The family of this 80-nucleotide sequence from Blautia pseudococcoides is "ZMP/ZTP riboswitch aptamer (pfl RNA motif)".
RNA sequence: CAGAUGUUAUAUAACUGGCGGAAGUGGAAUGAACCACAGGGAGUAUAACGUUGAUUUAGCCGACCGUCUGGGCAGAAGUU
Number, nucleotide and partner (000 for none) at each position: 001c000002a000003g052004a051005u050006g049007u048008u047009a046010u045011a044012u043013a000014a000015c040016u039017g068018g067019c066020g065021g064022a000023a000024g037025u036026g035027g034028a000029a000030u000031g000032a000033a000034c027035c026036a025037c024038a000039g016040g015041g000042a000043g012044u011045a010046u009047a008048a007049c006050g005051u004052u003053g000054a000055u000056u000057u075058a000059g073060c072061c071062g000063a000064c021065c020066g019067u018068c017069u000070g000071g061072g060073c059074a000075g057076a000077a000078g000079u000080u000